A member of the RNA family "Small nucleolar RNA SNORA68" from Albula goreensis, 134 nucleotides long. The family's consensus secondary structure was predicted with PFOLD. NCBI's taxonomy places the organism under Eukaryota, Actinopteri, Elopocephalai, Elopocephala, Albula. Gene Ontology terms of the family: RNA processing and nucleolus. From the family's description: U68 is a member of the H/ACA class of small nucleolar RNAs (snoRNAs) which act as guides in the the modification of uridines to pseudouridines. The family's RNA type in Rfam is H/ACA-box small nucleolar RNA.

RNA sequence: ACUGCACACAAACCCAAAGAACAUUGUCAAACCUGUGUAAUGUUCUUGUCAUGUGUGCAGAAAUUAAAAAGCACCUUGUCGCCUUUCAUAAGCUGCUGCUGUGCAAAUGGAAGUGAAAUCAAGGUUCAAUACAU
Numbered sequence: 001a002c003u004g005c006a007c008a009c010a011a012a013c014c015c016a017a018a019g020a021a022c023a024u025u026g027u028c029a030a031a032c033c034u035g036u037g038u039a040a041u042g043u044u045c046u047u048g049u050c051a052u053g054u055g056u057g058c059a060g061a062a063a064u065u066a067a068a069a070a071g072c073a074c075c076u077u078g079u080c081g082c083c084u085u086u087c088a089u090a091a092g093c094u095g096c097u098g099c100u101g102u103g104c105a106a107a108u109g110g111a112a113g114u115g116a117a118a119u120c121a122a123g124g125u126u127c128a129a130u131a132c133a134u
Stems, first nucleotide, its partner, number of pairs: 002060008019045009071127001073125005083113007092104002